The record is a 128-nucleotide RNA sequence from Phrynocephalus forsythii, which matches "Small nucleolar RNA SNORD22" in Rfam.
Rfam links the family to the GO terms RNA processing and nucleolus.
RNA sequence: UCCCAAUGAGGAAACCCUGACACGUCUUACCUUGUGUCCUGGCCCCAGAACCUGCAAAGGUUGAACCCACUGGGGCCGGCAGAAGGACAGGAGGAGACUCUGCUCCAGGAGGAGCUGUCUGAUGGGAC
Numbered sequence: 001u002c003c004c005a006a007u008g009a010g011g012a013a014a015c016c017c018u019g020a021c022a023c024g025u026c027u028u029a030c031c032u033u034g035u036g037u038c039c040u041g042g043c044c045c046c047a048g049a050a051c052c053u054g055c056a057a058a059g060g061u062u063g064a065a066c067c068c069a070c071u072g073g074g075g076c077c078g079g080c081a082g083a084a085g086g087a088c089a090g091g092a093g094g095a096g097a098c099u100c101u102g103c104u105c106c107a108g109g110a111g112g113a114g115c116u117g118u119c120u121g122a123u124g125g126g127a128c
Stems, first nucleotide, its partner, number of pairs: 001127004
Dot-bracket structure: ((((.......................................................................................................................)))).
About this RNA:
The family has 49 seed sequences and 1,081 matches in Rfam 15.1. For this family Rfam cites "A mammalian gene with introns instead of exons generating stable RNA products" (Tycowski et al., Nature, 1996). By type it is a C/D-box small nucleolar RNA.